Plastid-rpl20 3UTR RNA: an 84-nucleotide sequence from Sagittaria lichuanensis. The family's RNA type in Rfam is cis-regulatory element. For this family Rfam cites "Retrograde signaling in plants: A critical review focusing on the GUN pathway and beyond" (Richter et al., Plant Commun, 2023). The family's consensus secondary structure was predicted with LocARNA. Rfam describes the family as follows. Plastid rpl20 is a non-coding RNA (ncRNA) recognised in plastids. It was found in the three prime untranslated region (3UTR) of rpl20 gene, it presence in the 3UTR region sugest a role in transcript maduration. The organism belongs to Sagittaria, within Eukaryota.

[Rfam]
RNA sequence: AUUCCCCGGAGAAUGAACUCCGGGAAAAUAGAAUCAAAAAUGACGAAUUAAUACUUUGUAGGAAUGAACGAGCAUGUUUCAAUA
Numbered sequence: 001a002u003u004c005c006c007c008g009g010a011g012a013a014u015g016a017a018c019u020c021c022g023g024g025a026a027a028a029u030a031g032a033a034u035c036a037a038a039a040a041u042g043a044c045g046a047a048u049u050a051a052u053a054c055u056u057u058g059u060a061g062g063a064a065u066g067a068a069c070g071a072g073c074a075u076g077u078u079u080c081a082a083u084a
Base pairs, nucleotide, nucleotide: 003026005024006023007022008021009020010019011018066079067078068077069076